[Rfam]
RNA sequence: CCGCCGGGGGUCUCCCCGGCGGCACCGCACUGAGCCGGUACCUGGUACGGCCGGCUCAG
Dot-bracket structure: (((((((((....))))))))).......(((.((((((..........)))))).)))